RNA sequence: GCUGAGGUUGUCAAGCUAGGUCAAAGACGCAGGACUUAGGAUCCUGUCCUUAGUGGUUCGAGGGUUCAAAUCCCUUCCUCAGCA
Number, nucleotide and partner (000 for none) at each position: 001g083002c082003u081004g080005a079006g078007g077008u000009u000010g028011u027012c026013a000014a000015g000016c000017u000018a000019g000020g000021u000022c000023a000024a000025a000026g012027a011028c010029g000030c046031a045032g044033g043034a042035c000036u000037u000038a000039g000040g000041a000042u034043c033044c032045u031046g030047u000048c000049c000050u000051u000052a000053g000054u000055g000056g000057u000058u000059c000060g076061a075062g074063g073064g072065u000066u000067c000068a000069a000070a000071u000072c064073c063074c062075u061076u060077c007078c006079u005080c004081a003082g002083c001084a000

A member of the RNA family "tRNA" from Methanomassiliicoccaceae archaeon DOK, 84 nucleotides long. Taxonomically the source falls in Methanomassiliicoccaceae (Archaea, Methanobacteriati, Thermoplasmata, Methanomassiliicoccales).